[Rfam]
RNA sequence: UGAGAAUCCUUAUUAUAUGCCUAUUUGUGGGAGUGAACCUCCUGCUAAACCAUCAAAUUGACGGGAAAGCCCUAAAGCAAUUUAAACCAAGCAGACGUGGUAACACAUUUGUGGCACAGGUAAUGACUCGUGGUAUGGUAAAAUCUAAAUUGAUAUCCUUUCCCCCUCUGGGGGAUGGGAAAUGGGUAAUCCGCAGCCAAGCUCCAUUACUUAAAUUUAUACGAAUAUUUUUGGCUUUACUUAGGAAGUAUGGUAUACAUUGCGCUAUAAAUACGAGUAAUGGAGUGCAGUUCAUCGACUAAACGUUGGUUGGCUUUUUUUGGGUUAAAUGCUUCCCCGGCCUACUUCGUCCGGAUGAAAAACCAAAUAAUUAGCUUAAGAUAUAGUCAAGCCCCACUCGAAAGGGUGCA
Numbered sequence: 001u002g003a004g005a006a007u008c009c010u011u012a013u014u015a016u017a018u019g020c021c022u023a024u025u026u027g028u029g030g031g032a033g034u035g036a037a038c039c040u041c042c043u044g045c046u047a048a049a050c051c052a053u054c055a056a057a058u059u060g061a062c063g064g065g066a067a068a069g070c071c072c073u074a075a076a077g078c079a080a081u082u083u084a085a086a087c088c089a090a091g092c093a094g095a096c097g098u099g100g101u102a103a104c105a106c107a108u109u110u111g112u113g114g115c116a117c118a119g120g121u122a123a124u125g126a127c128u129c130g131u132g133g134u135a136u137g138g139u140a141a142a143a144u145c146u147a148a149a150u151u152g153a154u155a156u157c158c159u160u161u162c163c164c165c166c167u168c169u170g171g172g173g174g175a176u177g178g179g180a181a182a183u184g185g186g187u188a189a190u191c192c193g194c195a196g197c198c199a200a201g202c203u204c205c206a207u208u209a210c211u212u213a214a215a216u217u218u219a220u221a222c223g224a225a226u227a228u229u230u231u232u233g234g235c236u237u238u239a240c241u242u243a244g245g246a247a248g249u250a251u252g253g254u255a256u257a258c259a260u261u262g263c264g265c266u267a268u269a270a271a272u273a274c275g276a277g278u279a280a281u282g283g284a285g286u287g288c289a290g291u292u293c294a295u296c297g298a299c300u301a302a303a304c305g306u307u308g309g310u311u312g313g314c315u316u317u318u319u320u321u322g323g324g325u326u327a328a329a330u331g332c333u334u335c336c337c338c339g340g341c342c343u344a345c346u347u348c349g350u351c352c353g354g355a356u357g358a359a360a361a362a363c364c365a366a367a368u369a370a371u372u373a374g375c376u377u378a379a380g381a382u383a384u385a386g387u388c389a390a391g392c393c394c395c396a397c398u399c400g401a402a403a404g405g406g407u408g409c410a
Stems, first nucleotide, its partner, number of pairs: 005025003011019003029040003048311005054305001059195002062193004070186003196291002201286004208279005295389001297388005313375003318370002321367001395408005
Group I catalytic intron: a 410-nucleotide RNA from Hymenoscyphus albidus.
Group I catalytic introns are large self-splicing ribozymes. They catalyse their own excision from mRNA, tRNA and rRNA precursors in a wide range of organisms.
Rfam links the family to the GO term Group I intron splicing.